RNA sequence: UCCAUCGUGAGGUGGAAUCUGAAGGAAGUCGGAUGCUCAAACCUCUGGUCUGACGAACAGAAAUCACAUAUAAGGCAUGGCAUAUCGGGUAAGGUUGCUACACAAACUAAAGUCCUAUAACUAUCCGAAGAUAUGCUGUGUAAAUGUGGCAGAUAGGUGGAGGAAAAGAUUACGCA
Numbered sequence: 001u002c003c004a005u006c007g008u009g010a011g012g013u014g015g016a017a018u019c020u021g022a023a024g025g026a027a028g029u030c031g032g033a034u035g036c037u038c039a040a041a042c043c044u045c046u047g048g049u050c051u052g053a054c055g056a057a058c059a060g061a062a063a064u065c066a067c068a069u070a071u072a073a074g075g076c077a078u079g080g081c082a083u084a085u086c087g088g089g090u091a092a093g094g095u096u097g098c099u100a101c102a103c104a105a106a107c108u109a110a111a112g113u114c115c116u117a118u119a120a121c122u123a124u125c126c127g128a129a130g131a132u133a134u135g136c137u138g139u140g141u142a143a144a145u146g147u148g149g150c151a152g153a154u155a156g157g158u159g160g161a162g163g164a165a166a167a168g169a170u171u172a173c174g175c176a
Stems, first nucleotide, its partner, number of pairs: 001016006030174002037169002042163006048154005064149006075141003079137007087115004093108004
Source information
A member of the RNA family "Group II catalytic intron D1-D4-3" from Acetivibrio ethanolgignens, 176 nucleotides long. Lineage of the source: Bacteria > Bacillati > Acetivibrionales > Acetivibrionaceae > Acetivibrio. Rfam describes the family as follows. Group II introns are found in rRNA, tRNA and mRNA of organelles in fungi, plants and protists, and also in mRNA in bacteria.